Annotation: The family of this 600-nucleotide part of an RNA from Ichthyophthirius multifiliis is "Eukaryotic small subunit ribosomal RNA". The base pairs follow the family's consensus structure, which is taken from published work.

RNA sequence: AACCUGGUUGAUCCUGCCAGUUACAUAUGCUUGUCUUAAAGAUUAACCCAUGCAUGUGCCAGUUCAGUAUUGAACAGCGAAACUGCGAAUGGCUCAUUAAAACAGUUAUAGUUUAUUUGAUAAUUCAAAAUUACAUGGAUAACCGAGCUAAUUGUUGGGCUAAUACAUGCGAAAAAAUCCGUGUCCCGCGACCGGAUUGUAUUUAUUAGAUAUUAAACCAAUCUCCUUCGGGCGAUUGUGAUGAUUCAAAGUAACUGAUCGAAUCGCGGCUUGCUGCGAUAAAUCAUCUAAGUUUCUGCCCUAUCAGCUCUCGAUGGUAGUGUAUUGGACUACCAUGGCGCUCACGGGUAACGGAGAAUUAGGGUUCGAUUCCGGAGAAGGAGCCUGAGAAACGGCUACUACACCUACGGGUAGGCAGCAGGGACGUAAAUUACCCAAUCCUAAUUCAGGGAGGUAGUGACAAGAAAUAGCAAGCCGGGAGAUUCUUCUCUACGGCAUUGAAAUGAGAACAGUGUAAAUCUCUUAGCGAGGAACAAUUGGAGGGCAAGUCAGGUGCCAGCAGCCGCGGUAAUUCCUGCUCCAAUAGCGUAUAUUAAAGUU
Numbered sequence: 001a002a003c004c005u006g007g008u009u010g011a012u013c014c015u016g017c018c019a020g021u022u023a024c025a026u027a028u029g030c031u032u033g034u035c036u037u038a039a040a041g042a043u044u045a046a047c048c049c050a051u052g053c054a055u056g057u058g059c060c061a062g063u064u065c066a067g068u069a070u071u072g073a074a075c076a077g078c079g080a081a082a083c084u085g086c087g088a089a090u091g092g093c094u095c096a097u098u099a100a101a102a103c104a105g106u107u108a109u110a111g112u113u114u115a116u117u118u119g120a121u122a123a124u125u126c127a128a129a130a131u132u133a134c135a136u137g138g139a140u141a142a143c144c145g146a147g148c149u150a151a152u153u154g155u156u157g158g159g160c161u162a163a164u165a166c167a168u169g170c171g172a173a174a175a176a177a178u179c180c181g182u183g184u185c186c187c188g189c190g191a192c193c194g195g196a197u198u199g200u201a202u203u204u205a206u207u208a209g210a211u212a213u214u215a216a217a218c219c220a221a222u223c224u225c226c227u228u229c230g231g232g233c234g235a236u237u238g239u240g241a242u243g244a245u246u247c248a249a250a251g252u253a254a255c256u257g258a259u260c261g262a263a264u265c266g267c268g269g270c271u272u273g274c275u276g277c278g279a280u281a282a283a284u285c286a287u288c289u290a291a292g293u294u295u296c297u298g299c300c301c302u303a304u305c306a307g308c309u310c311u312c313g314a315u316g317g318u319a320g321u322g323u324a325u326u327g328g329a330c331u332a333c334c335a336u337g338g339c340g341c342u343c344a345c346g347g348g349u350a351a352c353g354g355a356g357a358a359u360u361a362g363g364g365u366u367c368g369a370u371u372c373c374g375g376a377g378a379a380g381g382a383g384c385c386u387g388a389g390a391a392a393c394g395g396c397u398a399c400u401a402c403a404c405c406u407a408c409g410g411g412u413a414g415g416c417a418g419c420a421g422g423g424a425c426g427u428a429a430a431u432u433a434c435c436c437a438a439u440c441c442u443a444a445u446u447c448a449g450g451g452a453g454g455u456a457g458u459g460a461c462a463a464g465a466a467a468u469a470g471c472a473a474g475c476c477g478g479g480a481g482a483u484u485c486u487u488c489u490c491u492a493c494g495g496c497a498u499u500g501a502a503a504u505g506a507g508a509a510c511a512g513u514g515u516a517a518a519u520c521u522c523u524u525a526g527c528g529a530g531g532a533a534c535a536a537u538u539g540g541a542g543g544g545c546a547a548g549u550c551a552g553g554u555g556c557c558a559g560c561a562g563c564c565g566c567g568g569u570a571a572u573u574c575c576u577g578c579u580c581c582a583a584u585a586g587c588g589u590a591u592a593u594u595a596a597a598g599u600u
Stems, first nucleotide, its partner, number of pairs: 004020005023593001025591007034465004040458001041425001047423003051420003056086002061084003067078002093377003103298003108293002112291002118286004134169004143159002146156003176198005184190001203254005217242001219240002225232002264279006300348003307339003314336008352374004356367004379400002382397003402414001403412003431456001433455003439451004471500003474496004478491005507527001509524001511523002537583006550577004559566002